[Rfam]
RNA sequence: AGUGCCUCAUAUUGCCAUAGUAGAAGCAUUCAACAUCAUGCUCCUGCCAGAUUCUUAAGAAUCUGCAAAUUCUACU
Number, nucleotide and partner (000 for none) at each position: 001a000002g000003u000004g000005c000006c000007u000008c000009a000010u000011a000012u000013u000014g000015c000016c000017a000018u000019a076020g075021u074022a073023g072024a071025a070026g041027c040028a039029u000030u000031c000032a000033a000034c000035a000036u000037c000038a000039u028040g027041c026042u000043c000044c000045u000046g000047c000048c065049a064050g063051a062052u061053u060054c059055u000056u000057a000058a000059g054060a053061a052062u051063c050064u049065g048066c000067a000068a000069a000070u025071u024072c023073u022074a021075c020076u019
Rfam assigns this 76-nucleotide RNA sequence from Gopherus evgoodei to the family "Mammalian CPEB3 ribozyme".
It scores 37 bits against the family's covariance model.
Pairs were carried over by alignment from the consensus structure, which is taken from published work.